[Rfam]
A member of the RNA family "Ribosomal protein L20 leader" from Evansella cellulosilytica, 120 nucleotides long.
About the family: This family is a putative r-protein leader autoregulatory structure found in B. subtilis and other low-GC Gram-positive bacteria.
The family's RNA type in Rfam is cis-regulatory leader.
RNA sequence: CAAAGCAAGAAGAAGCGCCCGCUUCUCACCUGAUUGACUAGAGGUUGACAGGUUACAUGAUUGUGAUAAACACGUAUGUAGAAGUGUGGGCGAAAUAUGCACCCACAUUUUUUUUAUGUA
Numbered sequence: 001c002a003a004a005g006c007a008a009g010a011a012g013a014a015g016c017g018c019c020c021g022c023u024u025c026u027c028a029c030c031u032g033a034u035u036g037a038c039u040a041g042a043g044g045u046u047g048a049c050a051g052g053u054u055a056c057a058u059g060a061u062u063g064u065g066a067u068a069a070a071c072a073c074g075u076a077u078g079u080a081g082a083a084g085u086g087u088g089g090g091c092g093a094a095a096u097a098u099g100c101a102c103c104c105a106c107a108u109u110u111u112u113u114u115u116a117u118g119u120a
Stems, first nucleotide, its partner, number of pairs: 011026006028053003034048005085107006092100001094098001

The organism belongs to Evansella cellulosilytica, within Bacteria. The match comes from Rfam's covariance-model search (74 bits).